[Rfam]
The record is a 144-nucleotide RNA sequence from Leptotrichia massiliensis, which matches "manA_II ncRNA motif" in Rfam. Its family is annotated with regulation of gene expression in the Gene Ontology. manA_II ncRNA motif was reported as a strong cis regulatory motif candidate, with potential to be a strong riboswitch candidate, it being reported in Leptotrichia species, upstream of manA gene, which codes for mannose-6-phosphate isomerase and pflA gene, which codes for a glycil-radical enzyme activating protein. The organism belongs to Leptotrichia, within Bacteria. Rfam's curators put it in the seed alignment. By type it is a cis-regulatory element. A reference for the family is Narunsky et al. (2024), "The discovery of novel noncoding RNAs in 50 bacterial genomes", Nucleic Acids Res.

RNA sequence: CAAGUCUGGGGGUGAUACCAGUGGAGCGUGAUAUAAUUUAUAUCAUAAUUCAAAUUGUAGUUGCCUACUAUUUUUUAAGUAGAGGAUAACACCCCAAAAAUGAAAAAUAUUUUUCCCCUGCAGACAUUAUUUGCAGGUUUUUUU
Numbered sequence: 001c002a003a004g005u006c007u008g009g010g011g012g013u014g015a016u017a018c019c020a021g022u023g024g025a026g027c028g029u030g031a032u033a034u035a036a037u038u039u040a041u042a043u044c045a046u047a048a049u050u051c052a053a054a055u056u057g058u059a060g061u062u063g064c065c066u067a068c069u070a071u072u073u074u075u076u077a078a079g080u081a082g083a084g085g086a087u088a089a090c091a092c093c094c095c096a097a098a099a100a101u102g103a104a105a106a107a108u109a110u111u112u113u114u115c116c117c118c119u120g121c122a123g124a125c126a127u128u129a130u131u132u133g134c135a136g137g138u139u140u141u142u143u144u
Base pairs, nucleotide, nucleotide: 009095010094011093012092013091024051025050026049030046033043034042035041060090061089062088063087065085066084068082069081070080071079102115103114104113105112106111117137118136119135120134121133122132123131